A member of the RNA family "L31-Actinobacteria ribosomal protein leader" from Pseudonocardia asaccharolytica, 59 nucleotides long. For this family Rfam cites "Discovery of 20 novel ribosomal leader candidates in bacteria and archaea" (Eckert and Weinberg, BMC Microbiol, 2020). Clan: Ribosomal Protein L31 Leader clan. Taxonomically the source falls in Pseudonocardia asaccharolytica (Bacteria, Actinomycetes, Pseudonocardiales, Pseudonocardia).

[Rfam]
RNA sequence: CCGGUUCCGGUUCACCCUCGGUGCCGCGCUCGUCGAGCCGCACCAGGGACCCGGCGACC
Number, nucleotide and partner (000 for none) at each position: 001c000002c000003g059004g058005u057006u000007c054008c053009g052010g051011u000012u000013c000014a000015c048016c047017c046018u045019c000020g044021g043022u042023g041024c000025c000026g000027c000028g000029c000030u000031c000032g000033u000034c000035g000036a000037g000038c000039c000040g000041c023042a022043c021044c020045a018046g017047g016048g015049a000050c000051c010052c009053g008054g007055c000056g000057a005058c004059c003